[Rfam]
RNA sequence: AUGUGAGGACGGCCUCACCACUCUUUUUUUAUCAGGGGACGACCCCU
Numbered sequence: 001a002u003g004u005g006a007g008g009a010c011g012g013c014c015u016c017a018c019c020a021c022u023c024u025u026u027u028u029u030u031a032u033c034a035g036g037g038g039a040c041g042a043c044c045c046c047u
Stems, first nucleotide, its partner, number of pairs: 003018006034047005